A member of the RNA family "6S / SsrS RNA" from Faucicola osloensis, 199 nucleotides long. The base pairs follow the family's consensus structure, which is taken from published work. The match comes from Rfam's covariance-model search (86 bits). The source organism's lineage runs through Bacteria, Pseudomonadati, Pseudomonadota, Gammaproteobacteria and Faucicola.
[Rfam]
RNA sequence: GUGCAUCUGGGGUAUUCGCCAGUUUAUGGUUUUACCUGAGCUGAUAAUUUAUAUAAGGGUAUGCGUUCUUUUCACUUGUUGUGCAAGCCUGCAUCCAGCUACGCUGCGAUGAUUCAGGAAGCCUUAAGAGUGGUUGCCAUACCCACCCUGAACGUUACAGUUCAUGGGUUCACAUAGACAGCGGUACUCUGGACCAAAA
Numbered sequence: 001g002u003g004c005a006u007c008u009g010g011g012g013u014a015u016u017c018g019c020c021a022g023u024u025u026a027u028g029g030u031u032u033u034a035c036c037u038g039a040g041c042u043g044a045u046a047a048u049u050u051a052u053a054u055a056a057g058g059g060u061a062u063g064c065g066u067u068c069u070u071u072u073c074a075c076u077u078g079u080u081g082u083g084c085a086a087g088c089c090u091g092c093a094u095c096c097a098g099c100u101a102c103g104c105u106g107c108g109a110u111g112a113u114u115c116a117g118g119a120a121g122c123c124u125u126a127a128g129a130g131u132g133g134u135u136g137c138c139a140u141a142c143c144c145a146c147c148c149u150g151a152a153c154g155u156u157a158c159a160g161u162u163c164a165u166g167g168g169u170u171c172a173c174a175u176a177g178a179c180a181g182c183g184g185u186a187c188u189c190u191g192g193a194c195c196a197a198a199a
Base pairs, nucleotide, nucleotide: 002197006193007192008191009190010189011188012187013186014185015184017183018182019181033168035166037164038163039162040161041160042159057144058143059142061140062139063138072133073132074131075130076129077128083122084121088118089117090116091115